Rfam assigns this 134-nucleotide sequence from Cervus elaphus to the family "Small nucleolar RNA SNORA43".
The family's RNA type in Rfam is H/ACA-box small nucleolar RNA.
Gene Ontology terms of the family: RNA processing and nucleolus.
About the family: ACA43 is a member of the H/ACA class of snoRNA that guide the sites of modification of uridines to pseudouridines.
NCBI's taxonomy places the organism under Eukaryota, Euteleostomi, Ruminantia, Cervidae, Cervus elaphus.
[Rfam]
RNA sequence: GAUGCCCGACUUGCUGGCACCAUGGGUGCAGCUGCCCUGCUGAACUCAGGAUGUUGGGUCAGAGAGGAGGCAGUUAUUUCUAUACUCAGUGCUCAGAACAGUGGGCACUAAGGAUGGCUUAUAGCCAGACAUCC
Numbered sequence: 001g002a003u004g005c006c007c008g009a010c011u012u013g014c015u016g017g018c019a020c021c022a023u024g025g026g027u028g029c030a031g032c033u034g035c036c037c038u039g040c041u042g043a044a045c046u047c048a049g050g051a052u053g054u055u056g057g058g059u060c061a062g063a064g065a066g067g068a069g070g071c072a073g074u075u076a077u078u079u080c081u082a083u084a085c086u087c088a089g090u091g092c093u094c095a096g097a098a099c100a101g102u103g104g105g106c107a108c109u110a111a112g113g114a115u116g117g118c119u120u121a122u123a124g125c126c127a128g129a130c131a132u133c134c
Base pairs, nucleotide, nucleotide: 003061004060005057006056008054023048024047025046073125074124080117081116082115085112086111090107091106092105093104094103095102